[Rfam]
RNA sequence: CCCGCGGCAGGACGGAAAGACCCCGUGAAGCUUUACUGUACCCUGGCAUUGAUUGCCUGCGCGUCCUGCGCAGGAUAGGUGGGAGCCUGGGAAGUCCCCCCUCCGGGGGGGAUGGAGGCGCCGGUGAGAUACCACCCUGGACGUGUGGGUAAUCUAACCCAGCAGAGUAAUCCUCCGCGGGGACAGUGUCAGGCGGGCAGUUUGACUGGGGCGGUCGCCUCCUAAAGGGUAACGGAGGCGCCCAAAGGUACCCUCAGGUGGGUCGGAAAUCCACCGUUAGAGUGCAAAGGCAUAAGGGUGCCUGACUGCGAGACUGACAAGUCGAGCAGACGCGAAAGCGGGGCUUAGUGACCCACACGUUCCGCGUGGAAGGGCGUGUGAUCAGCGGAUAAAAGCUACUCCGGGGAUAACAGGCUAAUCCCGCCCGAGAGCCCACAUCGACGGCGGGGGUUGGCACCUCGAUGUCGGCUCGUCGCAUCCUGGGGCUGUAGCCGGUCCCAAGGGUUGGGCUGUUCGCCCAUUAAAGCGGCACGCGAGCUGGGUUCAGAACGUCGUGAGACAGUUCGGUCCCUAUCCGCCGCGGGCGCA
Numbered sequence: 001c002c003c004g005c006g007g008c009a010g011g012a013c014g015g016a017a018a019g020a021c022c023c024c025g026u027g028a029a030g031c032u033u034u035a036c037u038g039u040a041c042c043c044u045g046g047c048a049u050u051g052a053u054u055g056c057c058u059g060c061g062c063g064u065c066c067u068g069c070g071c072a073g074g075a076u077a078g079g080u081g082g083g084a085g086c087c088u089g090g091g092a093a094g095u096c097c098c099c100c101c102u103c104c105g106g107g108g109g110g111g112a113u114g115g116a117g118g119c120g121c122c123g124g125u126g127a128g129a130u131a132c133c134a135c136c137c138u139g140g141a142c143g144u145g146u147g148g149g150u151a152a153u154c155u156a157a158c159c160c161a162g163c164a165g166a167g168u169a170a171u172c173c174u175c176c177g178c179g180g181g182g183a184c185a186g187u188g189u190c191a192g193g194c195g196g197g198c199a200g201u202u203u204g205a206c207u208g209g210g211g212c213g214g215u216c217g218c219c220u221c222c223u224a225a226a227g228g229g230u231a232a233c234g235g236a237g238g239c240g241c242c243c244a245a246a247g248g249u250a251c252c253c254u255c256a257g258g259u260g261g262g263u264c265g266g267a268a269a270u271c272c273a274c275c276g277u278u279a280g281a282g283u284g285c286a287a288a289g290g291c292a293u294a295a296g297g298g299u300g301c302c303u304g305a306c307u308g309c310g311a312g313a314c315u316g317a318c319a320a321g322u323c324g325a326g327c328a329g330a331c332g333c334g335a336a337a338g339c340g341g342g343g344c345u346u347a348g349u350g351a352c353c354c355a356c357a358c359g360u361u362c363c364g365c366g367u368g369g370a371a372g373g374g375c376g377u378g379u380g381a382u383c384a385g386c387g388g389a390u391a392a393a394a395g396c397u398a399c400u401c402c403g404g405g406g407a408u409a410a411c412a413g414g415c416u417a418a419u420c421c422c423g424c425c426c427g428a429g430a431g432c433c434c435a436c437a438u439c440g441a442c443g444g445c446g447g448g449g450g451u452u453g454g455c456a457c458c459u460c461g462a463u464g465u466c467g468g469c470u471c472g473u474c475g476c477a478u479c480c481u482g483g484g485g486c487u488g489u490a491g492c493c494g495g496u497c498c499c500a501a502g503g504g505u506u507g508g509g510c511u512g513u514u515c516g517c518c519c520a521u522u523a524a525a526g527c528g529g530c531a532c533g534c535g536a537g538c539u540g541g542g543u544u545c546a547g548a549a550c551g552u553c554g555u556g557a558g559a560c561a562g563u564u565c566g567g568u569c570c571c572u573a574u575c576c577g578c579c580g581c582g583g584g585c586g587c588a
Stems, first nucleotide, its partner, number of pairs: 001584008010576003014571002022405004027401002029397005035201004042193007051154016068137001078136005085119003094113008158181003162178002165175003204216004217239006240386001242343002248301006254281002257275006282291002306329004312323003331340003354380007362373002414455003418452001419449007429439002466541001467539004471533001472530005479504002482499006506520005547565004551560003